[Rfam]
Source information:
A member of the RNA family "Tombusvirus internal replication element (IRE)" from Tombusvirus melongenae, 94 nucleotides long. The organism belongs to Eggplant mottled crinkle virus, within Viruses. It is one of the family's seed sequences. Rfam classes the family as a cis-regulatory element.

RNA sequence: GGUUUGUGAGAAGGUCGGAGUUGCCCACCGUUUUGGGUAUGAUGGGUUUCUAUCAUACUACAACGGUGCGAAGCUGCGUACUUACACGCGAGCC
Numbered sequence: 001g002g003u004u005u006g007u008g009a010g011a012a013g014g015u016c017g018g019a020g021u022u023g024c025c026c027a028c029c030g031u032u033u034u035g036g037g038u039a040u041g042a043u044g045g046g047u048u049u050c051u052a053u054c055a056u057a058c059u060a061c062a063a064c065g066g067u068g069c070g071a072a073g074c075u076g077c078g079u080a081c082u083u084a085c086a087c088g089c090g091a092g093c094c
Stems, first nucleotide, its partner, number of pairs: 001094008017077001019075003026068005037058009
From the family's description: This family represents the Tombusvirus internal replication element (IRE) which is located within the region coding for p92 polymerase. The element is essential for viral replication and is thought to be required at an early stage of this process such as template recruitment and/or replicase complex assembly. Gene Ontology term of the family: viral genome replication.